[Rfam]
RNA sequence: GGAUGCUGGUUUCAUGUGGUGGUUUAGAUGUGUUUUACCCAGUGUCUAGCACCAUUUGAAAUCAGUGUUCC
Number, nucleotide and partner (000 for none) at each position: 001g071002g070003a069004u000005g066006c065007u064008g063009g062010u061011u060012u059013c058014a057015u000016g055017u054018g053019g052020u051021g050022g000023u000024u000025u048026a047027g046028a045029u000030g000031u000032g000033u000034u000035u000036u000037a000038c000039c000040c000041a000042g000043u000044g000045u028046c027047u026048a025049g000050c021051a020052c019053c018054a017055u016056u000057u014058g013059a012060a011061a010062u009063c008064a007065g006066u005067g000068u000069u003070c002071c001

mir-29 microRNA precursor family: a 71-nucleotide sequence from Astyanax mexicanus. A search with the family's covariance model found it, with a score of 68 bits. The source organism's lineage runs through Eukaryota, Teleostomi, Neopterygii, Teleostei and Astyanax. About the family: This family represents the microRNA (miRNA) precursors mir-29.